[Rfam]
RNA: Small Cajal body specific RNA 3
Organism: Notiomystis cincta
RNA sequence: GCUGGGACCAGUUGGGACCAGUCGUGGGCAAAAUAAAUAUUCUUUUGUCCAUUGUUGCAGUCUUCCUAGAGCAAAGUGGAGGUCUCUGUCUGCUUUAGGACAGCCAGCUAAAUCAGAUCGUUCCCCUCCUUACACG
Numbered sequence: 001g002c003u004g005g006g007a008c009c010a011g012u013u014g015g016g017a018c019c020a021g022u023c024g025u026g027g028g029c030a031a032a033a034u035a036a037a038u039a040u041u042c043u044u045u046u047g048u049c050c051a052u053u054g055u056u057g058c059a060g061u062c063u064u065c066c067u068a069g070a071g072c073a074a075a076g077u078g079g080a081g082g083u084c085u086c087u088g089u090c091u092g093c094u095u096u097a098g099g100a101c102a103g104c105c106a107g108c109u110a111a112a113u114c115a116g117a118u119c120g121u122u123c124c125c126c127u128c129c130u131u132a133c134a135c136g
Stems, first nucleotide, its partner, number of pairs: 004066003009060001011058002024052006035043001078129005086120001088118003092114001094112005